The record is a 145-nucleotide sequence from Actinocatenispora rupis, which matches "c-di-AMP riboswitch aptamer (ydaO/yuaA leader)" in Rfam. NCBI's taxonomy places the organism under Bacteria, Bacillati, Actinomycetes, Micromonosporales, Actinocatenispora. From the family's description: This family represents a conserved RNA structure found upstream of the ydaO and yuaA genes in Bacillus subtilis and related genes in other bacteria.

[Rfam]
RNA sequence: GCACGUACACCGCUCAGUCGCCGCAUCAGCGGCGAGCCGGGGACCCAGCACCGUGGGGUGAGUCCGGUGACCCGCAUGUCACCGGUAGGGCGCAUCUUCCCGUCCGAACCCGUCAGCUAACCCGGUCUGCGGUCAGGAAGAAGGA
Numbered sequence: 001g002c003a004c005g006u007a008c009a010c011c012g013c014u015c016a017g018u019c020g021c022c023g024c025a026u027c028a029g030c031g032g033c034g035a036g037c038c039g040g041g042g043a044c045c046c047a048g049c050a051c052c053g054u055g056g057g058g059u060g061a062g063u064c065c066g067g068u069g070a071c072c073c074g075c076a077u078g079u080c081a082c083c084g085g086u087a088g089g090g091c092g093c094a095u096c097u098u099c100c101c102g103u104c105c106g107a108a109c110c111c112g113u114c115a116g117c118u119a120a121c122c123c124g125g126u127c128u129g130c131g132g133u134c135a136g137g138a139a140g141a142a143g144g145a
Stems, first nucleotide, its partner, number of pairs: 011131003018035007036126006046055002056111003064085008088105004